[Rfam]
RNA: mir-166 microRNA precursor family
Organism: Aegilops tauschii
RNA sequence: GUUAAGGGGGUUGUUGUCUGGUUCAAGGUCUCCACAUACAUCAUAUACAUGGAGAGCAUGGUAUAUGGAUUGUAUGAUUUGGUGAUCUCGGACCAGGCUUCAAUCCCUUUAAC
Numbered sequence: 001g002u003u004a005a006g007g008g009g010g011u012u013g014u015u016g017u018c019u020g021g022u023u024c025a026a027g028g029u030c031u032c033c034a035c036a037u038a039c040a041u042c043a044u045a046u047a048c049a050u051g052g053a054g055a056g057c058a059u060g061g062u063a064u065a066u067g068g069a070u071u072g073u074a075u076g077a078u079u080u081g082g083u084g085a086u087c088u089c090g091g092a093c094c095a096g097g098c099u100u101c102a103a104u105c106c107c108u109u110u111a112a113c
Stems, first nucleotide, its partner, number of pairs: 001113013016098006024090001026088001